[Rfam]
RNA sequence: GCAGUGUCAAUCUCGCAGAUGGGGUAUACGUGCGAGGCACCUAGUUGUCAACGAUUUCCUUACCUCGGGAAGGUCUGAGAUAAAGUCAAAAGAAACGUUCUAGCCGGACGGCAUCGUAAGAUUGCGCGCGGGAACCAGAAACAGCUUGACGUUGCCUAAUAGCCGGGGAUGCUCCGCCGUGAGCGGAGGUGGCAAAUUGUCGAGAUGGAAACUCGCGUGACUCGCUUUUUAAGUAUAAUCUGCCGAGCCGGACGCUGACGCUCCGGAACUCAAUUCAGACUAGUCUGACACUGC
Numbered sequence: 001g002c003a004g005u006g007u008c009a010a011u012c013u014c015g016c017a018g019a020u021g022g023g024g025u026a027u028a029c030g031u032g033c034g035a036g037g038c039a040c041c042u043a044g045u046u047g048u049c050a051a052c053g054a055u056u057u058c059c060u061u062a063c064c065u066c067g068g069g070a071a072g073g074u075c076u077g078a079g080a081u082a083a084a085g086u087c088a089a090a091a092g093a094a095a096c097g098u099u100c101u102a103g104c105c106g107g108a109c110g111g112c113a114u115c116g117u118a119a120g121a122u123u124g125c126g127c128g129c130g131g132g133a134a135c136c137a138g139a140a141a142c143a144g145c146u147u148g149a150c151g152u153u154g155c156c157u158a159a160u161a162g163c164c165g166g167g168g169a170u171g172c173u174c175c176g177c178c179g180u181g182a183g184c185g186g187a188g189g190u191g192g193c194a195a196a197u198u199g200u201c202g203a204g205a206u207g208g209a210a211a212c213u214c215g216c217g218u219g220a221c222u223c224g225c226u227u228u229u230u231a232a233g234u235a236u237a238a239u240c241u242g243c244c245g246a247g248c249c250g251g252a253c254g255c256u257g258a259c260g261c262u263c264c265g266g267a268a269c270u271c272a273a274u275u276c277a278g279a280c281u282a283g284u285c286u287g288a289c290a291c292u293g294c
Stems, first nucleotide, its partner, number of pairs: 001294004007288003012247004016242003021066005036049004040044001075278005084222004096110005111125003114121002126218007145204003248266005254261002
Rfam assigns this 294-nucleotide RNA sequence to the family "Nuclear RNase P". Rfam describes the family as follows. Ribonuclease P (RNase P) is a ubiquitous endoribonuclease, found in archaea, bacteria and eukarya as well as chloroplasts and mitochondria. The family is grouped with related families in Rfam's "RNaseP clan". The match comes from Rfam's covariance-model search (125 bits). Its family is annotated with ribonuclease P complex, tRNA processing and ribonuclease P activity in the Gene Ontology.